Rfam assigns this 311-nucleotide sequence from Maribacter sp. HTCC2170 to the family "Bacterial RNase P class A". It is annotated as a ribozyme. For this family Rfam cites "Ribonuclease P: unity and diversity in a tRNA processing ribozyme" (Frank and Pace, Annu Rev Biochem, 1998). NCBI's taxonomy places the organism under Bacteria, Bacteroidota, Flavobacteriia, Flavobacteriaceae, Maribacter.
[Rfam]
RNA sequence: CGAGCAGGCCACCUUAUCGCUGUUCGCUGUUCGCGAAUGGAGGAAAGUCCGGACACCAUAGUGCAUCAUAGCGGGUAACACCCGUCUCCCAUUUUUGGGACGGACAAGUGCAACAGAAAGAAUGUACAGAUAAUGCUGUAGUGAAAUCAGGUAAACUCUAUGCGGUGAAACGCCAUGUAAAUCAGUGUUUGAGGGCUGCACGCUCGAGCUGAAGGGUAGGCGGUUAGAACCUAUGGGUAACCAUAGGUCCAGAUAAAUGAUAAGGAAGGCUUUACGGUCUUACAGAAUCCGGCUUAUGGCCUGCUUUUUUA
Numbered sequence: 001c002g003a004g005c006a007g008g009c010c011a012c013c014u015u016a017u018c019g020c021u022g023u024u025c026g027c028u029g030u031u032c033g034c035g036a037a038u039g040g041a042g043g044a045a046a047g048u049c050c051g052g053a054c055a056c057c058a059u060a061g062u063g064c065a066u067c068a069u070a071g072c073g074g075g076u077a078a079c080a081c082c083c084g085u086c087u088c089c090c091a092u093u094u095u096u097g098g099g100a101c102g103g104a105c106a107a108g109u110g111c112a113a114c115a116g117a118a119a120g121a122a123u124g125u126a127c128a129g130a131u132a133a134u135g136c137u138g139u140a141g142u143g144a145a146a147u148c149a150g151g152u153a154a155a156c157u158c159u160a161u162g163c164g165g166u167g168a169a170a171c172g173c174c175a176u177g178u179a180a181a182u183c184a185g186u187g188u189u190u191g192a193g194g195g196c197u198g199c200a201c202g203c204u205c206g207a208g209c210u211g212a213a214g215g216g217u218a219g220g221c222g223g224u225u226a227g228a229a230c231c232u233a234u235g236g237g238u239a240a241c242c243a244u245a246g247g248u249c250c251a252g253a254u255a256a257a258u259g260a261u262a263a264g265g266a267a268g269g270c271u272u273u274a275c276g277g278u279c280u281u282a283c284a285g286a287a288u289c290c291g292g293c294u295u296a297u298g299g300c301c302u303g304c305u306u307u308u309u310u311a
Base pairs, nucleotide, nucleotide: 002306003305004304005303006302007301008300009299010298011297012265013264014263015262016261017260018259020040021039022038023037024036025035026034027033045295046294047293049292050291051290052289053288054167055166056165057164061201062200063199064198067162068161069160070159071085072084073083074082075081086102087100088099089098090097103158104157108156109155110152111151126139127138128137129136171222172221173220174219182212183211184210185209186208193205194204195203196202229248230247231246232245233244234243235242236241